[Rfam]
RNA sequence: CGAACGAAACGGCAAACCUUCCGCGAGGAAGAGACGCAAAGCCACGGGACUCUCGAAGUCGGCCGGGUUACCGAA
Numbered sequence: 001c002g003a004a005c006g007a008a009a010c011g012g013c014a015a016a017c018c019u020u021c022c023g024c025g026a027g028g029a030a031g032a033g034a035c036g037c038a039a040a041g042c043c044a045c046g047g048g049a050c051u052c053u054c055g056a057a058g059u060c061g062g063c064c065g066g067g068u069u070a071c072c073g074a075a
Base pairs, nucleotide, nucleotide: 012037013036018031019030020029021028022027040069041068042067043066045065046064047063048060049059050058
RNA: c-di-GMP-I riboswitch aptamer
Organism: Deinococcus yavapaiensis